[Rfam]
RNA: A. fumigatus sRNA Afu_309
Organism: Didymella pomorum
RNA sequence: CUCUCACCACCAGCCUGUGCCAGUUUUCCUGUCCACCUCUAGGGGUGUGUUCGGUUGAGAGCUGGCAGUUCGUUCGUUACCAUGGAGCCGUCUUGAUCAGUGGACGUCAAUAUCUGAACGACAGGCUGCAGAGCAAGUCGGCGCGUUGCUGGAAGCCUGAGUUCGCCGGAAGGUUUGAGCUCGGUGAAAGGUGCGUGUCAGGCAGACUGAUUCCUGUUCCCUUUUGCUAGACCGUCGGUCCAUGACGCUUGGGACAAACCCAGUUGGCUAUAUCA
Numbered sequence: 001c002u003c004u005c006a007c008c009a010c011c012a013g014c015c016u017g018u019g020c021c022a023g024u025u026u027u028c029c030u031g032u033c034c035a036c037c038u039c040u041a042g043g044g045g046u047g048u049g050u051u052c053g054g055u056u057g058a059g060a061g062c063u064g065g066c067a068g069u070u071c072g073u074u075c076g077u078u079a080c081c082a083u084g085g086a087g088c089c090g091u092c093u094u095g096a097u098c099a100g101u102g103g104a105c106g107u108c109a110a111u112a113u114c115u116g117a118a119c120g121a122c123a124g125g126c127u128g129c130a131g132a133g134c135a136a137g138u139c140g141g142c143g144c145g146u147u148g149c150u151g152g153a154a155g156c157c158u159g160a161g162u163u164c165g166c167c168g169g170a171a172g173g174u175u176u177g178a179g180c181u182c183g184g185u186g187a188a189a190g191g192u193g194c195g196u197g198u199c200a201g202g203c204a205g206a207c208u209g210a211u212u213c214c215u216g217u218u219c220c221c222u223u224u225u226g227c228u229a230g231a232c233c234g235u236c237g238g239u240c241c242a243u244g245a246c247g248c249u250u251g252g253g254a255c256a257a258a259c260c261c262a263g264u265u266g267g268c269u270a271u272a273u274c275a
Base pairs, nucleotide, nucleotide: 011128012127013126014125015124016123017122018121019066020065021064022063023062025060026059027058028057029054030053031052033049034047035046036045037044038043075120076119077118078117080116083109084108085107087105089103141196142195143194144193145192146191156184159180162177166173167172202268203267205265206264207263208262209261218254219253220252221251226248227247230240231239232238233237